[Rfam]
RNA sequence: UCAACAGGAUGAAUUUUUUAUUCUAAGUAUGUUUUUUCUGGCAUCUCUAAUGUUAGGGCUUUUCAGCUCGAUGAAUAGAACCUUGACUAUAUCUGAUA
Numbered sequence: 001u002c003a004a005c006a007g008g009a010u011g012a013a014u015u016u017u018u019u020a021u022u023c024u025a026a027g028u029a030u031g032u033u034u035u036u037u038c039u040g041g042c043a044u045c046u047c048u049a050a051u052g053u054u055a056g057g058g059c060u061u062u063u064c065a066g067c068u069c070g071a072u073g074a075a076u077a078g079a080a081c082c083u084u085g086a087c088u089a090u091a092u093c094u095g096a097u098a
Stems, first nucleotide, its partner, number of pairs: 057068004